[Rfam]
RNA sequence: CGUUAUGAGAGAGGCUGCGGCUGACAGGAGUAGGGCGCGUAUCCGGCGGGAACCGGGCGUCUGAAAGGGGAAGCCGCCGAAGAGCCGCCGCCGUUCCCGCAGCGCCGGUAUCUGGGACGCAGGGAGAAGAUCCUGCGGACUGUCACGGGGUUUGCCCCGUGGAGAGCUGUCAUGCGC
Numbered sequence: 001c002g003u004u005a006u007g008a009g010a011g012a013g014g015c016u017g018c019g020g021c022u023g024a025c026a027g028g029a030g031u032a033g034g035g036c037g038c039g040u041a042u043c044c045g046g047c048g049g050g051a052a053c054c055g056g057g058c059g060u061c062u063g064a065a066a067g068g069g070g071a072a073g074c075c076g077c078c079g080a081a082g083a084g085c086c087g088c089c090g091c092c093g094u095u096c097c098c099g100c101a102g103c104g105c106c107g108g109u110a111u112c113u114g115g116g117a118c119g120c121a122g123g124g125a126g127a128a129g130a131u132c133c134u135g136c137g138g139a140c141u142g143u144c145a146c147g148g149g150g151u152u153u154g155c156c157c158c159g160u161g162g163a164g165a166g167c168u169g170u171c172a173u174g175c176g177c
Base pairs, nucleotide, nucleotide: 006172007171008170010168011167017077018076019075020074021073022072025069033062034061035060036059037058038057081113082112083111084109085108086107087106089104090103091102114141115140118137119136120135121134122133123132124131143162144161145160146159147158148157149156
Lysine riboswitch aptamer: a 177-nucleotide sequence from Firmicutes bacterium CAG:124.
NCBI's taxonomy places the organism under Bacteria, Bacillati, Bacillota.
Rfam links the family to the GO term lysine biosynthetic process.
The base pairs follow the family's consensus structure, which is taken from published work.